[Rfam]
RNA sequence: UCAUGAAAAAGGCAAAUCCGGUGAAAGCCGGGGACGCAAAGCUACAGGGGCUAACGUGCACAUCCGUGCACUAUGCCAGCCAGUUACCAAA
Numbered sequence: 001u002c003a004u005g006a007a008a009a010a011g012g013c014a015a016a017u018c019c020g021g022u023g024a025a026a027g028c029c030g031g032g033g034a035c036g037c038a039a040a041g042c043u044a045c046a047g048g049g050g051c052u053a054a055c056g057u058g059c060a061c062a063u064c065c066g067u068g069c070a071c072u073a074u075g076c077c078a079g080c081c082a083g084u085u086a087c088c089a090a091a
Base pairs, nucleotide, nucleotide: 012037013036017032018031019030020029021028022027040085041084042083043082047081048080049077050076051075056071057070058069059068060067061066
The family of this 91-nucleotide RNA sequence from Paenibacillus sp. yr247 is "c-di-GMP-I riboswitch aptamer". A search with the family's covariance model found it, with a score of 81 bits. Taxonomically the source falls in Paenibacillus (Bacteria, Bacillota, Bacilli, Paenibacillaceae).